Shown here is a 70-nucleotide sequence from Aspergillus ruber, a member of the family "bZIP non canonical Hac1/Xbp1 intron". A search with the family's covariance model found it, with a score of 52 bits. The family has 112 seed sequences and 1,325 matches in Rfam 15.1. Rfam classes the family as a small RNA. Rfam describes the family as follows. bZIP intron RNA is a non-canonical intron that was first reported in HAC1 gene in yeast and XBP1 gene in Metazoa.
RNA sequence: CGAGUCCUCCGAUGCGACACAACAUCCUGCAGCGAUGUUGUGUGACCUGCAGUGUCCGUCUCUGGGCUCG
Numbered sequence: 001c002g003a004g005u006c007c008u009c010c011g012a013u014g015c016g017a018c019a020c021a022a023c024a025u026c027c028u029g030c031a032g033c034g035a036u037g038u039u040g041u042g043u044g045a046c047c048u049g050c051a052g053u054g055u056c057c058g059u060c061u062c063u064g065g066g067c068u069c070g
Stems, first nucleotide, its partner, number of pairs: 001070007011060004021039006044056003